The family of this 111-nucleotide RNA from Nesterenkonia xinjiangensis is "mraW RNA". The match comes from Rfam's covariance-model search (52 bits). By type it is a cis-regulatory element.
RNA sequence: AGAGGGUCCUUGGGCGAGUUCUCCAGCCGCUCCGAGCGCAUCCUGACAUCCCUUCCCCGGUGUCAGGCGGCAUCGGCGCGGAGGGGGAACCUGGUCAAGGAUCCUCUCCGG
Numbered sequence: 001a002g003a004g005g006g007u008c009c010u011u012g013g014g015c016g017a018g019u020u021c022u023c024c025a026g027c028c029g030c031u032c033c034g035a036g037c038g039c040a041u042c043c044u045g046a047c048a049u050c051c052c053u054u055c056c057c058c059g060g061u062g063u064c065a066g067g068c069g070g071c072a073u074c075g076g077c078g079c080g081g082a083g084g085g086g087g088a089a090c091c092u093g094g095u096c097a098a099g100g101a102u103c104c105u106c107u108c109c110g111g
Stems, first nucleotide, its partner, number of pairs: 010098004015093002018090002021087004027081004032076003038071002042067008